RNA sequence: ACUCCGUCCACUCAGUGUUUUGGACUAAUUGUUCAGGACUGCUAAACUGUACAACAGUCUGCAUAUUGCUUAGGCUAGGCU
Numbered sequence: 001a002c003u004c005c006g007u008c009c010a011c012u013c014a015g016u017g018u019u020u021u022g023g024a025c026u027a028a029u030u031g032u033u034c035a036g037g038a039c040u041g042c043u044a045a046a047c048u049g050u051a052c053a054a055c056a057g058u059c060u061g062c063a064u065a066u067u068g069c070u071u072a073g074g075c076u077a078g079g080c081u
Base pairs, nucleotide, nucleotide: 013068014067015066016065017064018063021061022060023059024058025057026056029054030053031052032051034049035048
RNA: mir-199 microRNA precursor family
Organism: Carlito syrichta